[Rfam]
RNA: Aggregatibacter sRNA 20
RNA sequence: AAAAUAAGUGUUGUGUUUAACAACCUUUUCAUAAUUUGCUUUCCGAGUGCCCCUUAGUUUAGGGGCUUUUUUUGUUUU
Numbered sequence: 001a002a003a004a005u006a007a008g009u010g011u012u013g014u015g016u017u018u019a020a021c022a023a024c025c026u027u028u029u030c031a032u033a034a035u036u037u038g039c040u041u042u043c044c045g046a047g048u049g050c051c052c053c054u055u056a057g058u059u060u061a062g063g064g065g066c067u068u069u070u071u072u073u074g075u076u077u078u
Stems, first nucleotide, its partner, number of pairs: 001073004006068003022040001024038001029034001050065005